Overview:
The family of this 82-nucleotide sequence from Kibdelosporangium aridum is "SAH (S-adenosyl-L-homocysteine) riboswitch aptamer". The literature on the family includes a 2008 paper in Mol Cell by Wang et al., "Riboswitches that sense S-adenosylhomocysteine and activate genes involved in coenzyme recycling". The match comes from Rfam's covariance-model search (44 bits). Rfam 15.1 lists 1,354 matches to the family in 1,132 species.
RNA sequence: UAGGCCGAGAGGCGCUGCAACGGACCGCGCCGGUCCGCCACGCUCGGUCUGCCACGAAGGCUAACAAGGGCGCCUCCCAGAU
Numbered sequence: 001u002a003g004g005c006c007g008a009g010a011g012g013c014g015c016u017g018c019a020a021c022g023g024a025c026c027g028c029g030c031c032g033g034u035c036c037g038c039c040a041c042g043c044u045c046g047g048u049c050u051g052c053c054a055c056g057a058a059g060g061c062u063a064a065c066a067a068g069g070g071c072g073c074c075u076c077c078c079a080g081a082u
Base pairs, nucleotide, nucleotide: 002050003049004048005047006046007045008044021037022036023035024034025033026032